This 79-nucleotide RNA from Flavobacterium cheongpyeongense belongs to the Rfam family "Flavo-1 RNA". Rfam classes the family as a small RNA. It scores 46 bits against the family's covariance model. The family's consensus secondary structure is taken from published work. Taxonomically the source falls in Flavobacterium (Bacteria, Flavobacteriia, Flavobacteriales, Flavobacteriaceae).
[Rfam]
RNA sequence: GUAUCGCAUGAGGGAUAGCAGCGGUAUCCUUUUGUGAAGAGAAACGGAGCAAAAGAUAUAGUGAAUAGCCCGACCCGGC
Dot-bracket structure: ...........(((.((...((...(((...((((...(.....)...))))..)))...))...)).)))........
Numbered sequence: 001g002u003a004u005c006g007c008a009u010g011a012g013g014g015a016u017a018g019c020a021g022c023g024g025u026a027u028c029c030u031u032u033u034g035u036g037a038a039g040a041g042a043a044a045c046g047g048a049g050c051a052a053a054a055g056a057u058a059u060a061g062u063g064a065a066u067a068g069c070c071c072g073a074c075c076c077g078g079c
Stems, first nucleotide, its partner, number of pairs: 012071003016067002021062002026057003032052004039045001